Shown here is a 135-nucleotide RNA from Crocodylus porosus, a member of the family "Small nucleolar RNA SNORA71". It is annotated as an H/ACA-box small nucleolar RNA. The members of this family belong to the H/ACA class of snoRNAs which bind a number of proteins (including dyskerin, Gar1p and Nop10p) to form snoRNP complexes. This class of snoRNAs are thought to guide the sites of modification of uridines to pseudouridines by forming direct base pairing interactions with substrate RNAs. NCBI's taxonomy places the organism under Eukaryota, Opisthokonta, Tetrapoda, Crocodylidae, Crocodylus.

RNA sequence: ACCUGCAUUCGAAAGUGAUUUUUGGCCUUGUCUGUGGCCUGGUCAUUGAUAGUGCAGGAAGAGGAACAUUUGAAAGCUUUUCCCGUGUUUGGAGGGCUCACUGUCAUCCCUGCUAAACCCUGUGGCUUUCAGACA
Numbered sequence: 001a002c003c004u005g006c007a008u009u010c011g012a013a014a015g016u017g018a019u020u021u022u023u024g025g026c027c028u029u030g031u032c033u034g035u036g037g038c039c040u041g042g043u044c045a046u047u048g049a050u051a052g053u054g055c056a057g058g059a060a061g062a063g064g065a066a067c068a069u070u071u072g073a074a075a076g077c078u079u080u081u082c083c084c085g086u087g088u089u090u091g092g093a094g095g096g097c098u099c100a101c102u103g104u105c106a107u108c109c110c111u112g113c114u115a116a117a118c119c120c121u122g123u124g125g126c127u128u129u130c131a132g133a134c135a
Base pairs, nucleotide, nucleotide: 002058003057004056005055006054007053008052009051014047015046016045017044018043019042020041024039025038026037027036069132071131072130073129074128075127076126077125087118088117089116090115091114093111094110095109096108